[Rfam]
RNA: Manganese Mn2+ riboswitch aptamer (yybP-ykoY)
Organism: Dyella soli
RNA sequence: CCAUGCGUGGCAUUGUCAUUGGGGAGUAGCCAUCCUCACCCCGCGCAGGCCGCACGGCUUGCGACAGCAGAGGAAUCCGCGUCAACAGACUUGAGGCCUCGGCUUCAUGGCGCGGAUGGCCAUCGAUACCUUCAGGUAUUGGCGGCCC
Numbered sequence: 001c002c003a004u005g006c007g008u009g010g011c012a013u014u015g016u017c018a019u020u021g022g023g024g025a026g027u028a029g030c031c032a033u034c035c036u037c038a039c040c041c042c043g044c045g046c047a048g049g050c051c052g053c054a055c056g057g058c059u060u061g062c063g064a065c066a067g068c069a070g071a072g073g074a075a076u077c078c079g080c081g082u083c084a085a086c087a088g089a090c091u092u093g094a095g096g097c098c099u100c101g102g103c104u105u106c107a108u109g110g111c112g113c114g115g116a117u118g119g120c121c122a123u124c125g126a127u128a129c130c131u132u133c134a135g136g137u138a139u140u141g142g143c144g145g146c147c148c
Base pairs, nucleotide, nucleotide: 034073035072036071075117076116077115078114079113080112081111082110083109084108092107093106094105095104096103
Dot-bracket structure: .................................(((..................................))).((((((((((.......(((((......)))))))))))))))...............................